[Rfam]
RNA sequence: GGUCCCGUGGCGUAGCGGUUAGCACUCAGGACUCUGAAUCCUGCGACGGGAGUUCAAAUCUCCCCGGGACCU
Numbered sequence: 001g002g003u004c005c006c007g008u009g010g011c012g013u014a015g016c017g018g019u020u021a022g023c024a025c026u027c028a029g030g031a032c033u034c035u036g037a038a039u040c041c042u043g044c045g046a047c048g049g050g051a052g053u054u055c056a057a058a059u060c061u062c063c064c065c066g067g068g069a070c071c072u
Stems, first nucleotide, its partner, number of pairs: 001071007010025001012023002027043005048064005
This 72-nucleotide sequence from Caenorhabditis auriculariae belongs to the Rfam family "tRNA".
A search with the family's covariance model found it, with a score of 59 bits.
Rfam links the family to the GO term triplet codon-amino acid adaptor activity.
Rfam classes the family as a transfer RNA.
Rfam's curators write: Transfer RNA (tRNA) molecules are approximately 80 nucleotides in length. Their secondary structure includes four short double-helical elements and three loops (D, anti-codon, and T loops).
The source organism's lineage runs through Eukaryota, Opisthokonta, Rhabditida, Rhabditomorpha and Caenorhabditis.
The base pairs follow the family's consensus structure, which is taken from published work.